Rfam assigns this 100-nucleotide RNA sequence from Desulforhopalus singaporensis to the family "Pyrrolysine insertion sequence mttB".
The family's consensus secondary structure was predicted with CMfinder.
The organism belongs to Desulforhopalus, within Bacteria.
On this family, see Theil Have et al., BMC Bioinformatics 2013: "Effects of using coding potential, sequence conservation and mRNA structure conservation for predicting pyrroly-sine containing genes".
Rfam links the family to the GO term pyrrolysine incorporation.
Rfam classes the family as a cis-regulatory element.
[Rfam]
RNA sequence: UAGGCUGACAGCAAAAUUUCCGAUGCCCAGGUUGGUCAUGAAAAAACCCUCACAGCCCUGUUACCGGCAUUGGCAGGUGCCAAUGUCAUCUACGGCUUGG
Numbered sequence: 001u002a003g004g005c006u007g008a009c010a011g012c013a014a015a016a017u018u019u020c021c022g023a024u025g026c027c028c029a030g031g032u033u034g035g036u037c038a039u040g041a042a043a044a045a046a047c048c049c050u051c052a053c054a055g056c057c058c059u060g061u062u063a064c065c066g067g068c069a070u071u072g073g074c075a076g077g078u079g080c081c082a083a084u085g086u087c088a089u090c091u092a093c094g095g096c097u098u099g100g
Base pairs, nucleotide, nucleotide: 003012025032034061077098079096080095